[Rfam]
This 77-nucleotide sequence from Laodelphax striatellus belongs to the Rfam family "mir-190 microRNA precursor family". The organism belongs to Laodelphax, within Eukaryota. Its family is annotated with miRNA-mediated post-transcriptional gene silencing and RISC complex in the Gene Ontology. The literature on the family includes a 2008 paper in Stem Cells by Bar et al., "MicroRNA discovery and profiling in human embryonic stem cells by deep sequencing of small RNA libraries". Its Rfam clan is "mir-50 clan". Rfam 15.1 lists 1,667 matches to the family in 854 species. Pairs were carried over by alignment from the consensus structure, which was predicted with RNAalifold. The match comes from Rfam's covariance-model search (70 bits).
RNA sequence: AUCACGGUAAGAUAUGUUUGAUAUUCUUGGUUGUUUUUUAAUCUGCAACCGAGGAUCAAACAUAUUAUAAUCGUGGC
Numbered sequence: 001a002u003c004a005c006g007g008u009a010a011g012a013u014a015u016g017u018u019u020g021a022u023a024u025u026c027u028u029g030g031u032u033g034u035u036u037u038u039u040a041a042u043c044u045g046c047a048a049c050c051g052a053g054g055a056u057c058a059a060a061c062a063u064a065u066u067a068u069a070a071u072c073g074u075g076g077c
Stems, first nucleotide, its partner, number of pairs: 005073004011066012024053002029050005